[Rfam]
RNA: PyrR binding site
RNA sequence: AGUCCCUUUUAAAAACAGUCCUGUGAGGCUGGCAAAGGGAGGCAGCUUGUGGAGGUAGUUUGUUGCUACUUCUAUAUACGUGUACCCUCUUUGUCUAUAAACAGGCAAAGGGGGUUUUUUUA
Numbered sequence: 001a002g003u004c005c006c007u008u009u010u011a012a013a014a015a016c017a018g019u020c021c022u023g024u025g026a027g028g029c030u031g032g033c034a035a036a037g038g039g040a041g042g043c044a045g046c047u048u049g050u051g052g053a054g055g056u057a058g059u060u061u062g063u064u065g066c067u068a069c070u071u072c073u074a075u076a077u078a079c080g081u082g083u084a085c086c087c088u089c090u091u092u093g094u095c096u097a098u099a100a101a102c103a104g105g106c107a108a109a110g111g112g113g114g115u116u117u118u119u120u121u122a
Stems, first nucleotide, its partner, number of pairs: 003040007016031005045079001048076011082117001084115012